Gammaproteobacterial sRNA STnc100: a 182-nucleotide sequence from Salmonella enterica. The family's RNA type in Rfam is small RNA. The source organism's lineage runs through Bacteria, Pseudomonadota, Salmonella, Salmonella enterica and Salmonella enterica subsp. arizonae. A search with the family's covariance model found it, with a score of 58 bits. Rfam 15.1 lists 137 matches to the family in 112 species.
RNA sequence: UCUGGUGAGUUGUAGAUUUUUCUUAUGCGUUGAAUCCCCCUUUACGGCGGGGCGUCCAGUCGAAAUAGUUAAUGUUCCUCGCGAAUCAUAUUGACUGUGGUAUGGUUCACCGGGAGGCACCCGGCACCGCUAUUUUAUAAAGUGAAAUUCACCGUCUAUCGUUUAGUGCGGUGGUUUUUCAC
Numbered sequence: 001u002c003u004g005g006u007g008a009g010u011u012g013u014a015g016a017u018u019u020u021u022c023u024u025a026u027g028c029g030u031u032g033a034a035u036c037c038c039c040c041u042u043u044a045c046g047g048c049g050g051g052g053c054g055u056c057c058a059g060u061c062g063a064a065a066u067a068g069u070u071a072a073u074g075u076u077c078c079u080c081g082c083g084a085a086u087c088a089u090a091u092u093g094a095c096u097g098u099g100g101u102a103u104g105g106u107u108c109a110c111c112g113g114g115a116g117g118c119a120c121c122c123g124g125c126a127c128c129g130c131u132a133u134u135u136u137a138u139a140a141a142g143u144g145a146a147a148u149u150c151a152c153c154g155u156c157u158a159u160c161g162u163u164u165a166g167u168g169c170g171g172u173g174g175u176u177u178u179u180c181a182c
Stems, first nucleotide, its partner, number of pairs: 010140003027130003031126002037052004077081001083108004088103003110124005142182004151172004156166002